A member of the RNA family "c-di-GMP-I riboswitch aptamer" from Rheinheimera mesophila, 89 nucleotides long.

RNA sequence: GAAAUUAAAAGGCAAACUGGCUUAAAGGUCAGGACGCAAAGCCUCCGGUCUAAGGAUCUGAAAGGAUCUAUGAUAGCGGGGUUGCAUUA
Dot-bracket structure: ...........((...((((((....))))))...))..((((.((((((....((((......))))...)))..)))))))......

For this family Rfam cites "Identification of 22 candidate structured RNAs in bacteria using the CMfinder comparative genomics pipeline" (Weinberg et al., Nucleic Acids Res, 2007). Gene Ontology term of the family: cyclic-di-GMP binding.